[Rfam]
RNA sequence: AACAUUCUGGAAAGCGGCCGCUGUCAGUUGCGGCCCACCGAAGGAGUAGCCGGGGUCCGUCCCCGGGAAAUCUCUCAGGUGCCAUGACAGAAGGGCAAAC
Numbered sequence: 001a002a003c004a005u006u007c008u009g010g011a012a013a014g015c016g017g018c019c020g021c022u023g024u025c026a027g028u029u030g031c032g033g034c035c036c037a038c039c040g041a042a043g044g045a046g047u048a049g050c051c052g053g054g055g056u057c058c059g060u061c062c063c064c065g066g067g068a069a070a071u072c073u074c075u076c077a078g079g080u081g082c083c084a085u086g087a088c089a090g091a092a093g094g095g096c097a098a099a100c
Stems, first nucleotide, its partner, number of pairs: 003094001005092005016035006037080003040076002044074003050067002
RNA: Glycine riboswitch aptamer